[Rfam]
RNA sequence: UUCUUCAGGGGAAAAAUGAUACGUUCGUUUUGUGUCUAGGGAAAAAAACGAACGUAUCAUUUUUCCCCUGAAGAA
Numbered sequence: 001u002u003c004u005u006c007a008g009g010g011g012a013a014a015a016a017u018g019a020u021a022c023g024u025u026c027g028u029u030u031u032g033u034g035u036c037u038a039g040g041g042a043a044a045a046a047a048a049c050g051a052a053c054g055u056a057u058c059a060u061u062u063u064u065c066c067c068c069u070g071a072a073g074a075a
Stems, first nucleotide, its partner, number of pairs: 003073005009067003013063002017059005024052006
RNA: mir-965 microRNA precursor family
Organism: Aedes aegypti